[Rfam]
This 101-nucleotide RNA from Paenibacillus tyrphae belongs to the Rfam family "Purine riboswitch aptamer". NCBI's taxonomy places the organism under Bacteria, Bacillati, Bacillota, Caryophanales, Paenibacillus.
RNA sequence: ACAAAAUAGGAAUAACCGUUUCGUAUAAUUCCGGGAAUCGGCCUGGAAGUUUCUACGAGAUCACCGUAAAUGAUCUGGCUACGAACAAGGAUAGGAUGGUU
Numbered sequence: 001a002c003a004a005a006a007u008a009g010g011a012a013u014a015a016c017c018g019u020u021u022c023g024u025a026u027a028a029u030u031c032c033g034g035g036a037a038u039c040g041g042c043c044u045g046g047a048a049g050u051u052u053c054u055a056c057g058a059g060a061u062c063a064c065c066g067u068a069a070a071u072g073a074u075c076u077g078g079c080u081a082c083g084a085a086c087a088a089g090g091a092u093a094g095g096a097u098g099g100u101u
Stems, first nucleotide, its partner, number of pairs: 020085006029048007058076006